RNA sequence: GGGACCCGUUCGCAAUUCUCAGAUGGCAGGGACGGGGGAACCAAAGAUUCCACGCGGGCCUUUCAAGAAGGUCCUUGGGGUUAAGCCGCUCUGCGCCAUCGAGUCAUGGUGCUAACCGGCCGGGUGAUACUCCCAUCCGAACCCGACAGCUCACCCCGCAGGCAUGGGAGAGGCAAUCA
Number, nucleotide and partner (000 for none) at each position: 001g000002g000003g000004a000005c030006c029007c000008g000009u000010u000011c000012g000013c000014a000015a000016u000017u000018c000019u000020c000021a000022g000023a000024u000025g000026g000027c000028a000029g006030g005031g000032a000033c158034g157035g156036g155037g154038g000039a000040a000041c000042c077043a076044a000045a000046g000047a000048u000049u000050c000051c000052a000053c000054g000055c000056g000057g000058g000059c000060c000061u000062u000063u000064c000065a000066a000067g000068a000069a000070g000071g000072u000073c000074c000075u000076u043077g042078g144079g143080g142081u000082u000083a000084a000085g000086c119087c118088g117089c000090u000091c000092u000093g000094c000095g000096c000097c000098a000099u000100c000101g000102a000103g000104u000105c000106a000107u000108g000109g000110u000111g000112c000113u000114a000115a000116c000117c088118g087119g086120c000121c000122g138123g137124g136125u135126g000127a000128u000129a000130c000131u000132c000133c000134c000135a125136u124137c123138c122139g000140a000141a000142c080143c079144c078145g000146a000147c000148a000149g000150c000151u000152c000153a000154c037155c036156c035157c034158g033159c000160a000161g000162g000163c000164a000165u000166g000167g000168g000169a000170g000171a000172g000173g000174c000175a000176a000177u000178c000179a000

A member of the RNA family "c-di-AMP riboswitch aptamer (ydaO/yuaA leader)" from Arthrobacter sp. ISL-30, 179 nucleotides long. The match comes from Rfam's covariance-model search (51 bits). The organism belongs to Arthrobacter, within Bacteria. The base pairs follow the family's consensus structure.